[Rfam]
RNA: Bacterial RNase P class A
RNA sequence: GCUGCCGGACGGGUAGUCGCUCCCAUUUUUGGGAGAGGAAAGUCCGGUCUCCAUAGGGCAGCGUGCCGGCUAACGGCCGGGCGGAUCGUAAGGUCCGACGGAUAGUGCCACAGAAAAUAUACCGCCUCGCCUUCGGGCGCGGUAAGGGUGAAAUGGUGCGGUAAGAGCGCACCGCGGCAGGAGUAAUUCUGCCGGCAGGGAAAACCCCACGCGGAGCAAGACCAAAUAGGGGAGGAGGGGCGGCCCGUCCCGCUUGACUUCCGGGUAGGUCGCUAGAACCGGUCAGUAAUGGCCGGUCCAGAGGAAUGACUACCGCCCGCAAGGGUACAGGAACCGGCUUACAGUCCGGCAGCUAAU
Numbered sequence: 001g002c003u004g005c006c007g008g009a010c011g012g013g014u015a016g017u018c019g020c021u022c023c024c025a026u027u028u029u030u031g032g033g034a035g036a037g038g039a040a041a042g043u044c045c046g047g048u049c050u051c052c053a054u055a056g057g058g059c060a061g062c063g064u065g066c067c068g069g070c071u072a073a074c075g076g077c078c079g080g081g082c083g084g085a086u087c088g089u090a091a092g093g094u095c096c097g098a099c100g101g102a103u104a105g106u107g108c109c110a111c112a113g114a115a116a117a118u119a120u121a122c123c124g125c126c127u128c129g130c131c132u133u134c135g136g137g138c139g140c141g142g143u144a145a146g147g148g149u150g151a152a153a154u155g156g157u158g159c160g161g162u163a164a165g166a167g168c169g170c171a172c173c174g175c176g177g178c179a180g181g182a183g184u185a186a187u188u189c190u191g192c193c194g195g196c197a198g199g200g201a202a203a204a205c206c207c208c209a210c211g212c213g214g215a216g217c218a219a220g221a222c223c224a225a226a227u228a229g230g231g232g233a234g235g236a237g238g239g240g241c242g243g244c245c246c247g248u249c250c251c252g253c254u255u256g257a258c259u260u261c262c263g264g265g266u267a268g269g270u271c272g273c274u275a276g277a278a279c280c281g282g283u284c285a286g287u288a289a290u291g292g293c294c295g296g297u298c299c300a301g302a303g304g305a306a307u308g309a310c311u312a313c314c315g316c317c318c319g320c321a322a323g324g325g326u327a328c329a330g331g332a333a334c335c336g337g338c339u340u341a342c343a344g345u346c347c348g349g350c351a352g353c354u355a356a357u
Stems, first nucleotide, its partner, number of pairs: 001353010011342001012314007020035006040340003044337005049216004056250004061212005066080005081099001082097006100207002105205002108200002122147002124143003128139004155173006174196001175194008220271004230262005242254003278297008
Dot-bracket structure: ((((((((((((((((((.((((((....))))))....[[[.[[[[[((((...[[[[.((((((((((.....)))))(((((((....)))))).)((...((.((............(((((.((((....)))).)))..)).......((((((.......))))))(((((((((....)))))))).)..))...)))))))))))))...((((......(((((.......(((..]]]].)))...))))).....))))......((((((((....))))))))..........)))))))..................]]]]]]]].).))))))))))....